[Rfam]
RNA: U1 spliceosomal RNA
RNA sequence: AUACUUACCUGGACGGGGUCGACGGGCAAUCAUGAAGGUCCGUGGCCUAGAUCAACGGCCUCCAUUGCACUCUGGAGGCGCGUUGGUUUACCAUCUCCCCAAGUGGGAGAGUGGACGUCAUAAUUUGUGAUAGAGGGGGAUUCGCGCCUGCGCGGCCCCUGC
Number, nucleotide and partner (000 for none) at each position: 001a000002u000003a000004c000005u000006u000007a000008c000009c000010u000011g000012g119013a118014c117015g116016g048017g047018g046019u045020c044021g043022a000023c042024g041025g040026g039027c038028a000029a000030u000031c000032a000033u000034g000035a000036a000037g000038g027039u026040c025041c024042g023043u021044g020045g019046c018047c017048u016049a089050g088051a087052u000053c086054a000055a083056c082057g081058g000059c000060c078061u077062c075063c074064a000065u000066u000067g000068c000069a000070c000071u000072c000073u000074g063075g062076a000077g061078g060079c000080g000081c057082g056083u055084u000085g000086g053087u051088u050089u049090a000091c114092c113093a112094u110095c109096u108097c000098c106099c105100c000101a000102a000103g000104u000105g099106g098107g000108a096109g095110a094111g000112u093113g092114g091115a000116c015117g014118u013119c012120a000121u000122a000123a000124u000125u000126u000127g000128u000129g000130a000131u000132a000133g000134a000135g000136g160137g159138g158139g157140a000141u000142u000143c154144g153145c152146g151147c000148c000149u000150g000151c146152g145153c144154g143155g000156c000157c139158c138159c137160u136161g000162c000